[Rfam]
RNA sequence: AUACUCUUGAACGACUAGCAACGCACAAACGUCUUCUGUGCGACAACAUCUGAAUGUUUGUCACAGGACUUUUGAGCGUUGCCAGUCGAAAGAGGAA
Numbered sequence: 001a002u003a004c005u006c007u008u009g010a011a012c013g014a015c016u017a018g019c020a021a022c023g024c025a026c027a028a029a030c031g032u033c034u035u036c037u038g039u040g041c042g043a044c045a046a047c048a049u050c051u052g053a054a055u056g057u058u059u060g061u062c063a064c065a066g067g068a069c070u071u072u073u074g075a076g077c078g079u080u081g082c083c084a085g086u087c088g089a090a091a092g093a094g095g096a097a
Stems, first nucleotide, its partner, number of pairs: 005095004012088005018082007026074004031069002034067001036066004042062005
The record is a 97-nucleotide RNA sequence from Caenorhabditis elegans, which matches "mir-249 microRNA precursor family" in Rfam. Taxonomically the source falls in Caenorhabditis (Eukaryota, Eumetazoa, Ecdysozoa, Peloderinae). Rfam's curators put it in the seed alignment. For this family Rfam cites "Improved annotation of C. elegans microRNAs by deep sequencing reveals structures associated with processing by Drosha and Dicer" (Warf et al., RNA, 2011). Rfam links the family to the GO terms RISC complex and miRNA-mediated post-transcriptional gene silencing.